Notes:
Shown here is a 125-nucleotide RNA sequence from Streptomyces beijiangensis, a member of the family "Streptomyces RNA 3920". Rfam's curators write: Identified by deep sequencing of transcriptome at the end of exponential growth phase. Sequencing size consistent with northern blot size. Streptomyces specific. Lineage of the source: Bacteria > Actinomycetes > Kitasatosporales > Streptomycetaceae > Streptomyces. A search with the family's covariance model found it, with a score of 122 bits.
RNA sequence: GAUAGGUCUCUGUUGCUACUGUGAUUGGACACUGACGCAGAGUCAACUAGCCUUGGUGAGGCGGUUCUUCGCGCGUGGAACCGGAGCGGUCCGAGCCAUGAGGGGGGAGGCUCGGACCGUUCGUC
Dot-bracket structure: (((((....)))))((((..(((......)))((((.....))))..)))).........((((....))))...((....)).(((((((((((((.(......)..)))))))))))))....
Numbered sequence: 001g002a003u004a005g006g007u008c009u010c011u012g013u014u015g016c017u018a019c020u021g022u023g024a025u026u027g028g029a030c031a032c033u034g035a036c037g038c039a040g041a042g043u044c045a046a047c048u049a050g051c052c053u054u055g056g057u058g059a060g061g062c063g064g065u066u067c068u069u070c071g072c073g074c075g076u077g078g079a080a081c082c083g084g085a086g087c088g089g090u091c092c093g094a095g096c097c098a099u100g101a102g103g104g105g106g107g108a109g110g111c112u113c114g115g116a117c118c119g120u121u122c123g124u125c
Stems, first nucleotide, its partner, number of pairs: 001014005015051004021032003033045004061072004076083002085121013099106001